[Rfam]
RNA sequence: UGGAGAAGGGGAGCACGUGCAGAGGGAGGAGGAAGGAGAGGGUCUGCACGUGCCCUGCUUCUCCAAC
Numbered sequence: 001u002g003g004a005g006a007a008g009g010g011g012a013g014c015a016c017g018u019g020c021a022g023a024g025g026g027a028g029g030a031g032g033a034a035g036g037a038g039a040g041g042g043u044c045u046g047c048a049c050g051u052g053c054c055c056u057g058c059u060u061c062u063c064c065a066a067c
Stems, first nucleotide, its partner, number of pairs: 001065008010056002013053011
Shown here is a 67-nucleotide sequence from Apostasia shenzhenica, a member of the family "MIR164 microRNA precursor family". A search with the family's covariance model found it, with a score of 66 bits. Its family is annotated with RISC complex and miRNA-mediated post-transcriptional gene silencing in the Gene Ontology. A reference for the family is Rhoades et al. (2002), "Prediction of plant microRNA targets", Cell. Lineage of the source: Eukaryota > Streptophyta > Mesangiospermae > Petrosaviidae > Apostasia. The base pairs follow the family's consensus structure, which was predicted with RNAalifold.